[Rfam]
Rfam assigns this 129-nucleotide RNA sequence from Myotis myotis to the family "Small nucleolar RNA SNORA3/SNORA45 family".
RNA sequence: CCUGAGACUAGAGUCACAUAUGACAGCUGUGGUCCUGGUGUGCUGGAGCUCUCGCAGAGAGUCUGCUGGUCUCUUGUUCACUGGCAAGGGCAGUAAGGGCCCCCGGUAGUGCCCAGAUCAGAAACAUAG
Dot-bracket structure: ..((((.((..((.(((((..(((.......)))...)))))))..))..))))...........(((((((......(((((....((((.......))))....)))))...)))))))........
The organism belongs to Myotis, within Eukaryota. Clan: SNORA3 clan. The base pairs follow the family's consensus structure, which was predicted with RNAalifold. The family's RNA type in Rfam is H/ACA-box small nucleolar RNA. A reference for the family is Huttenhofer et al. (2001), "RNomics: an experimental approach that identifies 201 candidates for novel, small, non-messenger RNAs in mouse", EMBO J. Gene Ontology terms of the family: RNA processing and nucleolus.